[Rfam]
RNA sequence: GAUUAUAAAUAGACCUUGUCCUCUCAUAAUCGCGGCUG
Numbered sequence: 001g002a003u004u005a006u007a008a009a010u011a012g013a014c015c016u017u018g019u020c021c022u023c024u025c026a027u028a029a030u031c032g033c034g035g036c037u038g
Base pairs, nucleotide, nucleotide: 001031002030003029004028005027006026
A member of the RNA family "S4-Bacteroidia ribosomal protein leader", 38 nucleotides long. By type it is a cis-regulatory leader. A reference for the family is Eckert and Weinberg (2020), "Discovery of 20 novel ribosomal leader candidates in bacteria and archaea", BMC Microbiol. The sequence is in the family's curated seed alignment.